[Rfam]
RNA sequence: AAUUGUGGUGCUUUUCUUUCGGGCACAUUUGUUAAGAUUUCAAAUGAGCCUGACUCUGCCACAUAUAUAGGAGCUGGCAAAAGUUCGAUGACAAAGGAAUCUGUAACCUUUCUUACAUCAAAGGUAGGCUCCACAUGU
Numbered sequence: 001a002a003u004u005g006u007g008g009u010g011c012u013u014u015u016c017u018u019u020c021g022g023g024c025a026c027a028u029u030u031g032u033u034a035a036g037a038u039u040u041c042a043a044a045u046g047a048g049c050c051u052g053a054c055u056c057u058g059c060c061a062c063a064u065a066u067a068u069a070g071g072a073g074c075u076g077g078c079a080a081a082a083g084u085u086c087g088a089u090g091a092c093a094a095a096g097g098a099a100u101c102u103g104u105a106a107c108c109u110u111u112c113u114u115a116c117a118u119c120a121a122a123g124g125u126a127g128g129c130u131c132c133a134c135a136u137g138u
Stems, first nucleotide, its partner, number of pairs: 005062006022050003026046006070132006076085003102120001

Background
Small nucleolar RNA SNORA12: a 138-nucleotide sequence from Pteropus vampyrus. NCBI's taxonomy places the organism under Eukaryota, Bilateria, Deuterostomia, Chordata, Pteropus. On this family, see Gu et al., Nucleic Acids Res 2005: "A novel experimental approach for systematic identification of box H/ACA snoRNAs from eukaryotes". The base pairs follow the family's consensus structure, which was predicted with RNAalifold. The match comes from Rfam's covariance-model search (113 bits). Rfam classes the family as an H/ACA-box small nucleolar RNA.